[Rfam]
RNA sequence: UUGUAAAGAUAUGUUGAGUUGUAGGACUCUAACUUUACUAAAUGUUUAGAAAAGGCAUAUUGAAGAA
Number, nucleotide and partner (000 for none) at each position: 001u000002u000003g000004u000005a000006a000007a000008g061009a060010u059011a058012u057013g056014u031015u000016g029017a000018g027019u026020u025021g000022u000023a000024g000025g020026a019027c018028u000029c016030u000031a014032a000033c054034u053035u052036u051037a000038c000039u000040a000041a000042a000043u000044g000045u000046u000047u000048a000049g000050a000051a036052a035053a034054g033055g000056c013057a012058u011059a010060u009061u008062g000063a000064a000065g000066a000067a000

S4-Fusobacteriales ribosomal protein leader: a 67-nucleotide sequence. For this family Rfam cites "Discovery of 20 novel ribosomal leader candidates in bacteria and archaea" (Eckert and Weinberg, BMC Microbiol, 2020). The base pairs follow the family's consensus structure, which is taken from published work. Clan: Ribosomal Protein S4 Leader clan. It is annotated as a cis-regulatory leader.